A member of the RNA family "MIR159 microRNA precursor family", 227 nucleotides long. Gene Ontology terms of the family: miRNA-mediated post-transcriptional gene silencing and RISC complex. The literature on the family includes a 2004 paper in Mol Cell by Jones-Rhoades and Bartel, "Computational identification of plant microRNAs and their targets, including a stress-induced miRNA". The sequence is in the family's curated seed alignment.
RNA sequence: GUGUAACAGAAGGAGCUCCCUUCCUCCAAAACGAAGAGGACAAGAUUUGAGGAACUAAAAUGCAGAAUCUAAGAGUUCAUGUCUUCCUCAUAGAGAGUGCGCGGUGUUAAAAGCUUGAAGAAAGCACACUUUAAGGGGAUUGCACGACCUCUUAGAUUCUCCCUCUUUCUCUACAUAUCAUUCUCUUCUCUUCGUUUGGAUUGAAGGGAGCUCCUUUUCUUCUUCUC
Numbered sequence: 001g002u003g004u005a006a007c008a009g010a011a012g013g014a015g016c017u018c019c020c021u022u023c024c025u026c027c028a029a030a031a032c033g034a035a036g037a038g039g040a041c042a043a044g045a046u047u048u049g050a051g052g053a054a055c056u057a058a059a060a061u062g063c064a065g066a067a068u069c070u071a072a073g074a075g076u077u078c079a080u081g082u083c084u085u086c087c088u089c090a091u092a093g094a095g096a097g098u099g100c101g102c103g104g105u106g107u108u109a110a111a112a113g114c115u116u117g118a119a120g121a122a123a124g125c126a127c128a129c130u131u132u133a134a135g136g137g138g139a140u141u142g143c144a145c146g147a148c149c150u151c152u153u154a155g156a157u158u159c160u161c162c163c164u165c166u167u168u169c170u171c172u173a174c175a176u177a178u179c180a181u182u183c184u185c186u187u188c189u190c191u192u193c194g195u196u197u198g199g200a201u202u203g204a205a206g207g208g209a210g211c212u213c214c215u216u217u218u219c220u221u222c223u224u225c226u227c
Stems, first nucleotide, its partner, number of pairs: 013213008023203001027199001029197001036190001069155002072152003078146001080144002086138004